[Rfam]
RNA sequence: GCCUCCGGAUCCCCGAAACAGGAAAAACCGGACAGGGGCGGGGGAACCACCACUGGGCGCCCCGAACGCCCUAGGGGUGAAGCCGGUCCGAGGACCGGCCGGGCUGCCUCUCAGCCCGAACCCGACAGCUCACUUCGCAGGCGCGGCAGGAGAGAGGAA
Numbered sequence: 001g002c003c004u005c006c007g008g009a010u011c012c013c014c015g016a017a018a019c020a021g022g023a024a025a026a027a028c029c030g031g032a033c034a035g036g037g038g039c040g041g042g043g044g045a046a047c048c049a050c051c052a053c054u055g056g057g058c059g060c061c062c063c064g065a066a067c068g069c070c071c072u073a074g075g076g077g078u079g080a081a082g083c084c085g086g087u088c089c090g091a092g093g094a095c096c097g098g099c100c101g102g103g104c105u106g107c108c109u110c111u112c113a114g115c116c117c118g119a120a121c122c123c124g125a126c127a128g129c130u131c132a133c134u135u136c137g138c139a140g141g142c143g144c145g146g147c148a149g150g151a152g153a154g155a156g157g158a159a
Stems, first nucleotide, its partner, number of pairs: 003143001005141002010037003038138006048074001075123003083098004101117004
c-di-AMP riboswitch aptamer (ydaO/yuaA leader): a 159-nucleotide RNA from Saccharopolyspora erythraea. Pairs were carried over by alignment from the consensus structure.